This 92-nucleotide RNA from Nannospalax galili belongs to the Rfam family "Small nucleolar SNORD12/SNORD106". On this family, see Huttenhofer et al., EMBO J 2001: "RNomics: an experimental approach that identifies 201 candidates for novel, small, non-messenger RNAs in mouse". Rfam links the family to the GO terms RNA processing and nucleolus.
[Rfam]
Nucleotides: 092
Base pairs, nucleotide, nucleotide: 001092002091003090004089005088006087007086008085009084
Number, partner (000 for none) and nucleotide at each position: 001092g002091c003090u004089g005088g006087u007086g008085u009084a010000a011000a012000u013000g014000a015000u016000g017000a018000c019000u020000u021000g022000a023000c024000u025000u026000u027000u028000u029000u030000u031000c032000c033000c034000c035000a036000u037000c038000a039000g040000a041000u042000c043000g044000a045000c046000c047000a048000u049000g050000u051000u052000g053000a054000u055000c056000a057000c058000u059000g060000a061000g062000a063000a064000a065000a066000c067000u068000u069000g070000c071000c072000a073000g074000u075000u076000a077000g078000u079000c080000c081000u082000g083000a084009u085008g086007c087006a088005c089004c090003a091002g092001c